[Rfam]
RNA: permuted transfer-messenger RNA
RNA sequence: GGCGAUAAAGUGCGGCGUUCAAUAGAUGCAGCGGACCCGGGGGCAGUACCCGGCGACUCCACCAAAACGCGUCUUUCAGGCGGGUUCUGACGGGGUCGAACCAGGAUCGACGUGUAUUCAAACGCGCUGUUUUCGCCCGGGCUGAGUAACCCGUUAAAGGCUCAAAACCACAAGUGCUAACGAUAACGAAGCACUCGCAAUCGCCGCAUAA
Numbered sequence: 001g002g003c004g005a006u007a008a009a010g011u012g013c014g015g016c017g018u019u020c021a022a023u024a025g026a027u028g029c030a031g032c033g034g035a036c037c038c039g040g041g042g043g044c045a046g047u048a049c050c051c052g053g054c055g056a057c058u059c060c061a062c063c064a065a066a067a068c069g070c071g072u073c074u075u076u077c078a079g080g081c082g083g084g085u086u087c088u089g090a091c092g093g094g095g096u097c098g099a100a101c102c103a104g105g106a107u108c109g110a111c112g113u114g115u116a117u118u119c120a121a122a123c124g125c126g127c128u129g130u131u132u133u134c135g136c137c138c139g140g141g142c143u144g145a146g147u148a149a150c151c152c153g154u155u156a157a158a159g160g161c162u163c164a165a166a167a168c169c170a171c172a173a174g175u176g177c178u179a180a181c182g183a184u185a186a187c188g189a190a191g192c193a194c195u196c197g198c199a200a201u202c203g204c205c206g207c208a209u210a211a
Base pairs, nucleotide, nucleotide: 001137002136003135004134005133015127016126017125018124027116028115029114031113032112033111037053038052039051040050041049054098055097056096057095058094059093060092138153139152140151141150